[Rfam]
RNA sequence: AAGCACGCAGAAAGUCGACUUGUCCGUUUGAAUCGUUCGAGUCGUUGAUUACGCGUGCGAGACCGACGCCAUAGGUAUCAUUCUUCUGAUUAUUAUCAGCGGAACAUCUAAAUAUGGCUACACUU
Number, nucleotide and partner (000 for none) at each position: 001a000002a000003g058004c057005a056006c055007g054008c053009a000010g000011a000012a000013a000014g000015u000016c044017g043018a042019c041020u040021u000022g038023u000024c000025c035026g000027u000028u000029u000030g000031a000032a000033u000034c000035g025036u000037u000038c022039g000040a020041g019042u018043c017044g016045u000046u000047g000048a000049u000050u000051a000052c000053g008054c007055g006056u005057g004058c003059g000060a000061g000062a000063c000064c000065g000066a000067c000068g118069c117070c116071a115072u114073a113074g000075g000076u110077a109078u000079c000080a000081u104082u103083c102084u101085u000086c099087u098088g097089a096090u095091u000092a000093u000094u000095a090096u089097c088098a087099g086100c000101g084102g083103a082104a081105c000106a000107u000108c000109u077110a076111a000112a000113u073114a072115u071116g070117g069118c068119u000120a000121c000122a000123c000124u000125u000